[Rfam]
Record summary:
The family of this 147-nucleotide RNA from Vibrio ishigakensis is "Molybdenum/Tungsten riboswitch aptamer (Moco RNA motif)". The organism belongs to Vibrio, within Bacteria. A search with the family's covariance model found it, with a score of 86 bits. The literature on the family includes a 2008 paper in Mol Microbiol by Regulski et al., "in molybdenum cofactor and tungsten cofactor metabolism".
RNA sequence: AUAAGCGUCGAACUCCGAGCCCUUUAGGCUACGUCGACUCCUUUCAAAGGUGAGAUACGCGUAAUGGGCCGUGGCAUUUGGCCACUGGGUUGCUUUAGAAAUGAAGUAGCCUCCCGGUAUUUGGAAAGGUGUUUUGUGACGCAACAA
Numbered sequence: 001a002u003a004a005g006c007g008u009c010g011a012a013c014u015c016c017g018a019g020c021c022c023u024u025u026a027g028g029c030u031a032c033g034u035c036g037a038c039u040c041c042u043u044u045c046a047a048a049g050g051u052g053a054g055a056u057a058c059g060c061g062u063a064a065u066g067g068g069c070c071g072u073g074g075c076a077u078u079u080g081g082c083c084a085c086u087g088g089g090u091u092g093c094u095u096u097a098g099a100a101a102u103g104a105a106g107u108a109g110c111c112u113c114c115c116g117g118u119a120u121u122u123g124g125a126a127a128g129g130u131g132u133u134u135u136g137u138g139a140c141g142c143a144a145c146a147a
Stems, first nucleotide, its partner, number of pairs: 006138001011133003015129002019069004024064003028060002033056003071085005087112011113124002